Bacterial large signal recognition particle RNA: a 267-nucleotide RNA sequence from Paenibacillus polymyxa. Lineage of the source: Bacteria > Bacilli > Caryophanales > Paenibacillaceae > Paenibacillus polymyxa. Clan: SRP clan. The match comes from Rfam's covariance-model search (204 bits). A reference for the family is Rosenblad et al. (2003), "SRPDB: Signal Recognition Particle Database", Nucleic Acids Res.
RNA sequence: CCGUGCUAGAUGGGGAGGUAGCGGUGCCCUGUAACUCGCAAUCCGCUAUAGCGAGGUUGAAUUCCUGUUAGAGGUGUUGUUGAUGUGAGGCUGGUCCCUGCGCACAAUGUUGACGGUUGGGUCCUCCGCAAUGAGUACUUGUGAACCUGGUCAGGUCCGGAAGGAAGCAGCCAUAAGCAAGCCCACUCUUGUGCCGGAGGGUUGCCUAGCCCGAGUUGUUGUUCAGGGUUGCCGCUCGGAUCACAACGAUCAAUAACAGGUGCACGG
Numbered sequence: 001c002c003g004u005g006c007u008a009g010a011u012g013g014g015g016a017g018g019u020a021g022c023g024g025u026g027c028c029c030u031g032u033a034a035c036u037c038g039c040a041a042u043c044c045g046c047u048a049u050a051g052c053g054a055g056g057u058u059g060a061a062u063u064c065c066u067g068u069u070a071g072a073g074g075u076g077u078u079g080u081u082g083a084u085g086u087g088a089g090g091c092u093g094g095u096c097c098c099u100g101c102g103c104a105c106a107a108u109g110u111u112g113a114c115g116g117u118u119g120g121g122u123c124c125u126c127c128g129c130a131a132u133g134a135g136u137a138c139u140u141g142u143g144a145a146c147c148u149g150g151u152c153a154g155g156u157c158c159g160g161a162a163g164g165a166a167g168c169a170g171c172c173a174u175a176a177g178c179a180a181g182c183c184c185a186c187u188c189u190u191g192u193g194c195c196g197g198a199g200g201g202u203u204g205c206c207u208a209g210c211c212c213g214a215g216u217u218g219u220u221g222u223u224c225a226g227g228g229u230u231g232c233c234g235c236u237c238g239g240a241u242c243a244c245a246a247c248g249a250u251c252a253a254u255a256a257c258a259g260g261u262g263c264a265c266g267g
Stems, first nucleotide, its partner, number of pairs: 001267006009058003012030004017025001019023001035055005064260007073251003076247002081243004086238004093233002096228005104222002106217003115211008123200006129191002133188004138181005148173004156165003